[Rfam]
RNA sequence: GGAUGUGAGGACGAUCUGGCUGUGACACCUGUCACCCCAUUGAUUGCCAGGGUUGAUUCGGCUGAUCUGGCUGUCUAGGCAGGUGUCCGCUUCCACCCUCACUGCUCCAUGUGCAUCCCUCCCAAAGCUGUGGGCUCGGUCAAAGAGGACGACCUUCCCCGAUAGAGAAGGACUGUUCUUCAGUCAAGGCUAUACAAGUAGCUGUGCUCUCCUGCUAGAACCUCCAAACAAGCUCUCAAGAUCCAUUUGUAAGAGAACAUAGGGUAGUCAAGCUUCCAAGACUCCAGACACAUCCAAAUGAGGCACUGCAUGUGGCAGUCUGCUUUUCUUU
Numbered sequence: 001g002g003a004u005g006u007g008a009g010g011a012c013g014a015u016c017u018g019g020c021u022g023u024g025a026c027a028c029c030u031g032u033c034a035c036c037c038c039a040u041u042g043a044u045u046g047c048c049a050g051g052g053u054u055g056a057u058u059c060g061g062c063u064g065a066u067c068u069g070g071c072u073g074u075c076u077a078g079g080c081a082g083g084u085g086u087c088c089g090c091u092u093c094c095a096c097c098c099u100c101a102c103u104g105c106u107c108c109a110u111g112u113g114c115a116u117c118c119c120u121c122c123c124a125a126a127g128c129u130g131u132g133g134g135c136u137c138g139g140u141c142a143a144a145g146a147g148g149a150c151g152a153c154c155u156u157c158c159c160c161g162a163u164a165g166a167g168a169a170g171g172a173c174u175g176u177u178c179u180u181c182a183g184u185c186a187a188g189g190c191u192a193u194a195c196a197a198g199u200a201g202c203u204g205u206g207c208u209c210u211c212c213u214g215c216u217a218g219a220a221c222c223u224c225c226a227a228a229c230a231a232g233c234u235c236u237c238a239a240g241a242u243c244c245a246u247u248u249g250u251a252a253g254a255g256a257a258c259a260u261a262g263g264g265u266a267g268u269c270a271a272g273c274u275u276c277c278a279a280g281a282c283u284c285c286a287g288a289c290a291c292a293u294c295c296a297a298a299u300g301a302g303g304c305a306c307u308g309c310a311u312g313u314g315g316c317a318g319u320c321u322g323c324u325u326u327u328c329u330u331u
Stems, first nucleotide, its partner, number of pairs: 001108003005102006013093002018090001024087010036073001037070003042067004046062003116171002119167003122139002125136001127135002140162002147158003201273003207267002210264005222255003228250005296331003300326005305319005
Shown here is a 331-nucleotide RNA from Phocoena sinus, a member of the family "7SK RNA". The family is grouped with related families in Rfam's "7SK clan". Rfam describes the family as follows. 7SK was discovered as an abundant small nuclear RNA in the mid-70s but a possible function has only recently been suggested. It is annotated as a non-coding RNA gene. For this family Rfam cites "Structural analyses of the 7SK ribonucleoprotein (RNP), the most abundant human small RNP of unknown function" (Wassarman and Steitz, Mol Cell Biol, 1991).